[Rfam]
RNA sequence: CUUCAACGACCCCAGCCACAAAGGCCGAUCGGCCGAACGGUCCUGGCCGUACGUCGCCAGCAGCGCCUGCGCCUC
Numbered sequence: 001c002u003u004c005a006a007c008g009a010c011c012c013c014a015g016c017c018a019c020a021a022a023g024g025c026c027g028a029u030c031g032g033c034c035g036a037a038c039g040g041u042c043c044u045g046g047c048c049g050u051a052c053g054u055c056g057c058c059a060g061c062a063g064c065g066c067c068u069g070c071g072c073c074u075c
Stems, first nucleotide, its partner, number of pairs: 015025003032070002038065002043060003047056001049054001

The record is a 75-nucleotide RNA sequence from Streptomyces paludis, which matches "ASpks TB sRNA" in Rfam.